[Rfam]
This 119-nucleotide sequence from Takifugu flavidus belongs to the Rfam family "Small nucleolar RNA SNORA26". Gene Ontology terms of the family: RNA processing and nucleolus. The match comes from Rfam's covariance-model search (44 bits). On this family, see Huttenhofer et al., EMBO J 2001: "RNomics: an experimental approach that identifies 201 candidates for novel, small, non-messenger RNAs in mouse". The family's RNA type in Rfam is H/ACA-box small nucleolar RNA. The family is grouped with related families in Rfam's "SNORA27 clan". Rfam describes the family as follows. The snoRNA HBI-6 belong to the H/ACA family of snoRNAs, guiding the pseudouridylation of position U4522 if the 28S rRNA. HBI-6 is the human orthologue of mouse MBI-6 snoRNA. The organism belongs to Takifugu, within Eukaryota.

RNA sequence: UUGCCCACCUCGGACCAACAAUUGUCUUUGGUGAUAACACAGGGGGGCAGAAUACCGCUCUCAUAAACCUGUAAUGACGGCACAAAUCCUCAUUGCGGAUCCUGUCGGGAGAAACAAUC
Numbered sequence: 001u002u003g004c005c006c007a008c009c010u011c012g013g014a015c016c017a018a019c020a021a022u023u024g025u026c027u028u029u030g031g032u033g034a035u036a037a038c039a040c041a042g043g044g045g046g047g048c049a050g051a052a053u054a055c056c057g058c059u060c061u062c063a064u065a066a067a068c069c070u071g072u073a074a075u076g077a078c079g080g081c082a083c084a085a086a087u088c089c090u091c092a093u094u095g096c097g098g099a100u101c102c103u104g105u106c107g108g109g110a111g112a113a114a115c116a117a118u119c
Stems, first nucleotide, its partner, number of pairs: 002049005008043003017035001019030001058111005069098007077090001079088001082087001